[Rfam]
RNA sequence: GGCAACUACUUACUUAAACACACAUACACCGACACAUGAUUCUGGGUGCCCUGCGGGGUUGGAUUAUGGGGUGUAUGGAGGCCUAAC
Numbered sequence: 001g002g003c004a005a006c007u008a009c010u011u012a013c014u015u016a017a018a019c020a021c022a023c024a025u026a027c028a029c030c031g032a033c034a035c036a037u038g039a040u041u042c043u044g045g046g047u048g049c050c051c052u053g054c055g056g057g058g059u060u061g062g063a064u065u066a067u068g069g070g071g072u073g074u075a076u077g078g079a080g081g082c083c084u085a086a087c
Base pairs, nucleotide, nucleotide: 023077024076025075026074027073028072029071030070035068036067037066038065039064040063041062042061048059049058050057051056
A member of the RNA family "t44 RNA" from Aestuariirhabdus litorea, 87 nucleotides long. Rfam describes the family as follows. This family consists of a number of bacterial RNA genes of between 135 and 170 bases in length. The t44 gene has been identified in several species of enteric bacteria but homologs have also been identified in Pseudomonas and Coxiella species. The t44 gene is found between the map and rpsB genes in all species in the full alignment apart from Shigella flexneri. The family's RNA type in Rfam is small RNA. Lineage of the source: Bacteria > Pseudomonadati > Pseudomonadota > Oceanospirillales > Aestuariirhabdus.